[Rfam]
RNA sequence: AGAAGUUGCCAGGUCUAAGAAGCCUGAUUAAAAUCUCUAGAUAGUAAGAGAGAACCUCAUAAGGGUUCAUUUUCCAUCUCGAACCUAUUCGCAAGUUUAUAGACUAGCUAUCUAUAAAUUUAGUGAUGGAAUACCAACGAAGUUGGUGUUCCCGCUUUGCGAACGUUGAUAACGUCCUCAGCAUGGAAAACUGAGAAAUAAUCUCCU
Numbered sequence: 001a002g003a004a005g006u007u008g009c010c011a012g013g014u015c016u017a018a019g020a021a022g023c024c025u026g027a028u029u030a031a032a033a034u035c036u037c038u039a040g041a042u043a044g045u046a047a048g049a050g051a052g053a054a055c056c057u058c059a060u061a062a063g064g065g066u067u068c069a070u071u072u073u074c075c076a077u078c079u080c081g082a083a084c085c086u087a088u089u090c091g092c093a094a095g096u097u098u099a100u101a102g103a104c105u106a107g108c109u110a111u112c113u114a115u116a117a118a119u120u121u122a123g124u125g126a127u128g129g130a131a132u133a134c135c136a137a138c139g140a141a142g143u144u145g146g147u148g149u150u151c152c153c154g155c156u157u158u159g160c161g162a163a164c165g166u167u168g169a170u171a172a173c174g175u176c177c178u179c180a181g182c183a184u185g186g187a188a189a190a191c192u193g194a195g196a197a198a199u200a201a202u203c204u205c206c207u
Stems, first nucleotide, its partner, number of pairs: 010026004041088004048080004052068005071189006089126004093121003097117006163175004178194004
Rfam assigns this 207-nucleotide RNA sequence to the family "RAGATH-14 RNA". It is annotated as a small RNA.